[Rfam]
RNA sequence: AAAAAGGAGCAAUACCAAACUUCUUGUUCUAUCACGAAGUUUGGUAUUGCUCCUUUUUUUUC
Dot-bracket structure: (((((((((((((((((((..((.((......)).))..)))))))))))))))))))....
Rfam assigns this 62-nucleotide RNA from Morus notabilis to the family "Plastid-psbA-2 3UTR RNA". A reference for the family is Richter et al. (2023), "Retrograde signaling in plants: A critical review focusing on the GUN pathway and beyond", Plant Commun. Plastid psbA-2 is a non-coding RNA (ncRNA) present in plastids. It was identified in inverted repeat sequences in the 3 prime untranslate region (3UTR) of photosystem II quinone-binding protein (psbA). Its Rfam clan is "Plastid-psbA 3UTR RNA clan". A search with the family's covariance model found it, with a score of 64 bits. NCBI's taxonomy places the organism under Eukaryota, Streptophytina, Spermatophyta, rosids, Morus.